[Rfam]
RNA sequence: AUGGAUGUGAUGAUAAUUUCCCCAGAUGAUCGAAGCUGAACAUUCUGUGCGACUUUUUAGAUCUCUAAUCCGUUAGAGAUUCCAAGCCAGAACUCUGAUCCAU
Numbered sequence: 001a002u003g004g005a006u007g008u009g010a011u012g013a014u015a016a017u018u019u020c021c022c023c024a025g026a027u028g029a030u031c032g033a034a035g036c037u038g039a040a041c042a043u044u045c046u047g048u049g050c051g052a053c054u055u056u057u058u059a060g061a062u063c064u065c066u067a068a069u070c071c072g073u074u075a076g077a078g079a080u081u082c083c084a085a086g087c088c089a090g091a092a093c094u095c096u097g098a099u100c101c102a103u
Base pairs, nucleotide, nucleotide: 001103002102003101004100005099
Rfam assigns this 103-nucleotide sequence from Gossypium trilobum to the family "Small nucleolar RNA Z103".
It is annotated as a C/D-box small nucleolar RNA.
On this family, see Chen et al., Nucleic Acids Res 2003: "The high diversity of snoRNAs in plants: identification and comparative study of 120 snoRNA genes from Oryza sativa".
It scores 90 bits against the family's covariance model.
The family's consensus secondary structure was predicted with PFOLD.